[Rfam]
A member of the RNA family "Plastid-rps18 3UTR RNA" from Clethra delavayi, 57 nucleotides long. By type it is a cis-regulatory element. The literature on the family includes a 2023 paper in Plant Commun by Richter et al., "Retrograde signaling in plants: A critical review focusing on the GUN pathway and beyond". The base pairs follow the family's consensus structure, which was predicted with LocARNA.

RNA sequence: UGCAAGUAUUUUACGAUUAAGAAGCACCCGUCUCUUGUACAGAUUGUGUAUUAAUCU
Numbered sequence: 001u002g003c004a005a006g007u008a009u010u011u012u013a014c015g016a017u018u019a020a021g022a023a024g025c026a027c028c029c030g031u032c033u034c035u036u037g038u039a040c041a042g043a044u045u046g047u048g049u050a051u052u053a054a055u056c057u
Stems, first nucleotide, its partner, number of pairs: 018037005024031002
Dot-bracket structure: .................(((((.((....)).)))))....................